[Rfam]
RNA sequence: ACGAUGUUCCGCUGCAAUUAAUGAGCUACAGUGAUGCAUGAGCAUCUG
Numbered sequence: 001a002c003g004a005u006g007u008u009c010c011g012c013u014g015c016a017a018u019u020a021a022u023g024a025g026c027u028a029c030a031g032u033g034a035u036g037c038a039u040g041a042g043c044a045u046c047u048g
Base pairs, nucleotide, nucleotide: 003046004045005044006043007042008041009040013038014037015036016035